[Rfam]
RNA sequence: GGUCCUAUAGUGUAGUGGUUAUCACUUCGGACUUUGAAUCCGAAAACCCAGGUUCGAAUCCUGGUAGGACCA
Numbered sequence: 001g002g003u004c005c006u007a008u009a010g011u012g013u014a015g016u017g018g019u020u021a022u023c024a025c026u027u028c029g030g031a032c033u034u035u036g037a038a039u040c041c042g043a044a045a046a047c048c049c050a051g052g053u054u055c056g057a058a059u060c061c062u063g064g065u066a067g068g069a070c071c072a
Base pairs, nucleotide, nucleotide: 001071002070003069004068005067006066007065010025011024012023027043028042029041030040031039048064049063050062051061052060
This 72-nucleotide RNA sequence from Trypanosoma brucei belongs to the Rfam family "tRNA". The family's RNA type in Rfam is transfer RNA. About the family: Transfer RNA (tRNA) molecules are approximately 80 nucleotides in length. It is one of the family's seed sequences. Taxonomically the source falls in Trypanosoma brucei (Eukaryota, Kinetoplastea, Trypanosoma, Trypanozoon). Its family is annotated with triplet codon-amino acid adaptor activity in the Gene Ontology.